Shown here is a 376-nucleotide RNA from Micromonospora inositola, a member of the family "transfer-messenger RNA". It scores 133 bits against the family's covariance model. The family's RNA type in Rfam is non-coding RNA gene. Rfam links the family to the GO term RNA catabolic process.

RNA sequence: GGGGGUGACUGGUUUCGACUUCGUACGUUGCGGCAGGGGAAGCGAGCCGAGGAAGCCGACGUCGUCUCGAGAAUCGUUCGUCGGAAACCAAUAAGCGCCAAGAACAAUCGCGCUGACUUCGCUCUCGCCGCCUGAGGCGAGUAGUGAGUCUGUCGGCCUGGGAGCGCCUUCGACCCAGAUGGCCGGCAUCAGCUAGAAGGCUGGCCAACCGGACCCGGUCGCGGGGUCCGUGCGGCGAGAUCAAUCAGCGACUGGGCCCGUCACACCAACUUGCUCGCGUGAGCGGUGGGGCCGAGUAGAGGCACAGCGAGCUGCGCUCGGAGAAGCCCUGACAAACCGGCGAAGGACCCGGGUUCGAUUCCCGGCACCUCCACCA
Numbered sequence: 001g002g003g004g005g006u007g008a009c010u011g012g013u014u015u016c017g018a019c020u021u022c023g024u025a026c027g028u029u030g031c032g033g034c035a036g037g038g039g040a041a042g043c044g045a046g047c048c049g050a051g052g053a054a055g056c057c058g059a060c061g062u063c064g065u066c067u068c069g070a071g072a073a074u075c076g077u078u079c080g081u082c083g084g085a086a087a088c089c090a091a092u093a094a095g096c097g098c099c100a101a102g103a104a105c106a107a108u109c110g111c112g113c114u115g116a117c118u119u120c121g122c123u124c125u126c127g128c129c130g131c132c133u134g135a136g137g138c139g140a141g142u143a144g145u146g147a148g149u150c151u152g153u154c155g156g157c158c159u160g161g162g163a164g165c166g167c168c169u170u171c172g173a174c175c176c177a178g179a180u181g182g183c184c185g186g187c188a189u190c191a192g193c194u195a196g197a198a199g200g201c202u203g204g205c206c207a208a209c210c211g212g213a214c215c216c217g218g219u220c221g222c223g224g225g226g227u228c229c230g231u232g233c234g235g236c237g238a239g240a241u242c243a244a245u246c247a248g249c250g251a252c253u254g255g256g257c258c259c260g261u262c263a264c265a266c267c268a269a270c271u272u273g274c275u276c277g278c279g280u281g282a283g284c285g286g287u288g289g290g291g292c293c294g295a296g297u298a299g300a301g302g303c304a305c306a307g308c309g310a311g312c313u314g315c316g317c318u319c320g321g322a323g324a325a326g327c328c329c330u331g332a333c334a335a336a337c338c339g340g341c342g343a344a345g346g347a348c349c350c351g352g353g354u355u356c357g358a359u360u361c362c363c364g365g366c367a368c369c370u371c372c373a374c375c376a
Stems, first nucleotide, its partner, number of pairs: 001372007019345006027337002032333001034331005043320005048069005056084006124148005130142002151188006158178001161176002166201006204236003210230003217253006255293005262288003270283002273312004280306002349365005